RNA sequence: CUGUGACUGUUCCCGCCAUCCUGAUGUGACAAUCAGCGCAGCCUAAGCACUCGCCACGUUAAGACCAUGCACGUGACCCCAGACCGACUUCUCUCCCUGGGUCUGCUUUUAUCAACGCUGGCGAGAAAC
Numbered sequence: 001c002u003g004u005g006a007c008u009g010u011u012c013c014c015g016c017c018a019u020c021c022u023g024a025u026g027u028g029a030c031a032a033u034c035a036g037c038g039c040a041g042c043c044u045a046a047g048c049a050c051u052c053g054c055c056a057c058g059u060u061a062a063g064a065c066c067a068u069g070c071a072c073g074u075g076a077c078c079c080c081a082g083a084c085c086g087a088c089u090u091c092u093c094u095c096c097c098u099g100g101g102u103c104u105g106c107u108u109u110u111a112u113c114a115a116c117g118c119u120g121g122c123g124a125g126a127a128a129c
Stems, first nucleotide, its partner, number of pairs: 003054003016041001019038001021036005065121003069118002080105006087098001
The record is a 129-nucleotide RNA sequence from Panthera tigris, which matches "Small nucleolar RNA SNORA72" in Rfam. About the family: U72 is a member of the H/ACA class of snoRNAs. The snoRNA gene is located in intron 4 of the ribosomal L30 protein gene in human, mouse and chicken. The family's consensus secondary structure was predicted with PFOLD. It is annotated as an H/ACA-box small nucleolar RNA. The family has 29 seed sequences and 1,541 matches in Rfam 15.1. It scores 72 bits against the family's covariance model.